[Rfam]
Nucleotides: 336
Base pairs, nucleotide, nucleotide: 001111002110003109005104006103007102008101009100010099017095021093022092027090028089029088031086032085033084034083035082036081038077039076040073041072042071045070046069047068048067049065050064051063120172121170122169123168124167125142128139130138131137143164144163150160151159152158202332203331204330209325211323212322213321214320216318223317224316225315226314231310232309233308
Number, partner (000 for none) and nucleotide at each position: 001111g002110g003109a004000u005104u006103g007102g008101g009100g010099g011000u012000u013000u014000u015000g016000u017095g018000u019000c020000u021093g022092g023000c024000u025000g026000c027090g028089a029088c030000a031086u032085c033084u034083g035082u036081c037000u038077c039076c040073c041072c042071a043000u044000u045070g046069a047068u048067c049065g050064c051063c052000a053000g054000g055000g056000u057000u058000g059000a060000u061000u062000c063051g064050g065049c066000u067048g068047a069046u070045c071042u072041g073040g074000c075000u076039g077038g078000g079000u080000a081036g082035g083034c084033g085032g086031g087000a088029g089028u090027c091000c092022c093021c094000u095017u096000c097000c098000u099010c100009c101008c102007u103006c104005a105000c106000c107000g108000c109003u110002c111001c112000a113000u114000g115000u116000g117000c118000a119000u120172c121170c122169c123168u124167c125142c126000c127000a128139a129000a130138g131137c132000u133000g134000c135000a136000c137131g138130c139128u140000c141000a142125g143164u144163c145000a146000a147000a148000g149000a150160g151159g152158a153000c154000g155000a156000c157000c158152u159151c160150c161000c162000a163144g164143a165000u166000a167124g168123a169122g170121g171000a172120g173000u174000u175000a176000c177000g178000u179000u180000c181000u182000u183000c184000g185000g186000u187000c188000a189000a190000g191000g192000g193000u194000u195000u196000a197000c198000g199000g200000u201000a202332g203331c204330u205000g206000c207000a208000g209325c210000c211323c212322c213321c214320u215000g216318g217000u218000a219000g220000a221000a222000c223317c224316u225315c226314c227000a228000a229000a230000c231310g232309a233308a234000c235000u236000c237000a238000a239000g240000a241000g242000u243000u244000u245000g246000u247000g248000c249000a250000c251000a252000u253000g254000u255000u256000g257000c258000u259000u260000a261000a262000u263000u264000a265000g266000c267000u268000g269000g270000u271000g272000a273000c274000a275000a276000c277000a278000g279000c280000u281000g282000c283000u284000u285000u286000c287000c288000u289000u290000u291000g292000u293000u294000u295000u296000c297000u298000u299000u300000c301000u302000c303000a304000g305000u306000u307000c308233u309232u310231c311000c312000c313000c314226g315225g316224a317223g318216c319000g320214g321213g322212g323211g324000u325209g326000a327000a328000a329000g330204g331203g332202c333000u334000u335000g336000a

This 336-nucleotide RNA sequence from Gopherus evgoodei belongs to the Rfam family "7SK RNA". Rfam's curators write: 7SK was discovered as an abundant small nuclear RNA in the mid-70s but a possible function has only recently been suggested. Two independent studies have found that 7SK RNA binds the CDK9/cyclin T complex (known as elongation factor P-TEFb). P-TEFb activates transcription by phosphorylating the C-terminal domain of RNA polymerase II. This process is negatively regulated by the 7SK RNP. The secondary structure of 7SK RNA shown here was proposed by Wasserman and Steitz on the basis of chemical modification and enzymatic cleavage experiments. This family contains a number of annotated pseudogenes and 7SK derived repeats. The match comes from Rfam's covariance-model search (192 bits). NCBI's taxonomy places the organism under Eukaryota, Opisthokonta, Chordata, Testudinoidea, Gopherus. Its Rfam clan is "7SK clan". By type it is a non-coding RNA gene.